The record is a 137-nucleotide RNA from Clostridiaceae bacterium AF18-31LB, which matches "Ribosomal protein L10 leader" in Rfam. By type it is a cis-regulatory leader.
RNA sequence: ACAGUUGAAGAUGACUGCCCGAAGACAGCAGGUGCCGUUAGGCAUAAGGUUAAAACGCCUGCCGAGGAAUGCAUUCGAUUGAGAAUGACUGAUUACCCCUCUGUGUCUGCGGCAUAGAGGGGUUUUUCAUCCUUACC
Numbered sequence: 001a002c003a004g005u006u007g008a009a010g011a012u013g014a015c016u017g018c019c020c021g022a023a024g025a026c027a028g029c030a031g032g033u034g035c036c037g038u039u040a041g042g043c044a045u046a047a048g049g050u051u052a053a054a055a056c057g058c059c060u061g062c063c064g065a066g067g068a069a070u071g072c073a074u075u076c077g078a079u080u081g082a083g084a085a086u087g088a089c090u091g092a093u094u095a096c097c098c099c100u101c102u103g104u105g106u107c108u109g110c111g112g113c114a115u116a117g118a119g120g121g122g123u124u125u126u127u128c129a130u131c132c133u134u135a136c137c
Stems, first nucleotide, its partner, number of pairs: 028062006034043003096122010